[Rfam]
Nucleotides: 097
Base pairs, nucleotide, nucleotide: 006085007084008083009082010081011046012045013044014043016040017032018031019030020029021028052077053076054075058071059070060069061068
Number, partner (000 for none) and nucleotide at each position: 001000g002000a003000a004000a005000u006085c007084g008083a009082c010081a011046u012045g013044g014043g015000g016040u017032g018031c019030g020029c021028u022000c023000c024000u025000u026000g027000g028021a029020g030019c031018g032017c033000u034000g035000a036000g037000a038000a039000c040016a041000c042000a043014c044013c045012c046011a047000u048000u049000g050000a051000a052077c053076c054075u055000g056000c057000u058071c059070u060069a061068g062000c063000u064000c065000a066000u067000a068061c069060u070059a071058g072000c073000g074000a075054a076053g077052g078000a079000a080000u081010u082009g083008u084007c085006g086000a087000g088000g089000u090000c091000u092000u093000u094000c095000a096000c097000a